[Rfam]
Rfam assigns this 108-nucleotide RNA sequence from Rhododendron simsii to the family "Small nucleolar RNA snoR100". The base pairs follow the family's consensus structure, which was predicted with WAR. Rfam links the family to the GO terms nucleolus and RNA processing. For this family Rfam cites "Experimental RNomics: identification of 140 candidates for small non-messenger RNAs in the plant Arabidopsis thaliana" (Marker et al., Curr Biol, 2002). The match comes from Rfam's covariance-model search (86 bits).
RNA sequence: CAAUGAAGGAAGCAUGGUAAUGUACACAUAAAUUGAAUUGGGUCUCUAGGACUGGCCUCUCUUAUGCCAUUCGGCUUUGAUUUGGGGGCAUGGUUCCGCAGCAAAAUA
Numbered sequence: 001c002a003a004u005g006a007a008g009g010a011a012g013c014a015u016g017g018u019a020a021u022g023u024a025c026a027c028a029u030a031a032a033u034u035g036a037a038u039u040g041g042g043u044c045u046c047u048a049g050g051a052c053u054g055g056c057c058u059c060u061c062u063u064a065u066g067c068c069a070u071u072c073g074g075c076u077u078u079g080a081u082u083u084g085g086g087g088g089c090a091u092g093g094u095u096c097c098g099c100a101g102c103a104a105a106a107u108a
Stems, first nucleotide, its partner, number of pairs: 012025001014023002040091001042089003050081001052079001054075001056073001